This 98-nucleotide sequence from Sphingomonas baiyangensis belongs to the Rfam family "Glycine riboswitch aptamer". Taxonomically the source falls in Sphingomonas (Bacteria, Pseudomonadati, Pseudomonadota, Sphingomonadaceae).
RNA sequence: GCGACAUGCGCGGGAGAGCGCUCGCCUGUAUAUUCAGGCAAGCCACCGAAGGAGCAACCGCCCCGGAAUCUCUCAGGUAUCGGGACCGCGCAUGGCUC
Numbered sequence: 001g002c003g004a005c006a007u008g009c010g011c012g013g014g015a016g017a018g019c020g021c022u023c024g025c026c027u028g029u030a031u032a033u034u035c036a037g038g039c040a041a042g043c044c045a046c047c048g049a050a051g052g053a054g055c056a057a058c059c060g061c062c063c064c065g066g067a068a069u070c071u072c073u074c075a076g077g078u079a080u081c082g083g084g085a086c087c088g089c090g091c092a093u094g095g096c097u098c
Stems, first nucleotide, its partner, number of pairs: 006093008020043003045078003048074002052072003058066002